RNA sequence: GGACACAACUCUGGAGAGUCCCAUUGGGCGCCGAAGGUGCACGGAAUCUGUGAUUCCUUAUCUCUCAGGCAAAAGGACAGAGACAGCGAU
Numbered sequence: 001g002g003a004c005a006c007a008a009c010u011c012u013g014g015a016g017a018g019u020c021c022c023a024u025u026g027g028g029c030g031c032c033g034a035a036g037g038u039g040c041a042c043g044g045a046a047u048c049u050g051u052g053a054u055u056c057c058u059u060a061u062c063u064c065u066c067a068g069g070c071a072a073a074a075g076g077a078c079a080g081a082g083a084c085a086g087c088g089a090u
Base pairs, nucleotide, nucleotide: 009082010081011080012079013078020028021027022026030070031069032068033066034065037064039062043057044056045055046054047053
The record is a 90-nucleotide sequence from Megasphaera vaginalis, which matches "Glycine riboswitch aptamer" in Rfam. Its family is annotated with glycine biosynthetic process in the Gene Ontology. A search with the family's covariance model found it, with a score of 53 bits. The source organism's lineage runs through Bacteria, Bacillota, Negativicutes, Veillonellales and Megasphaera.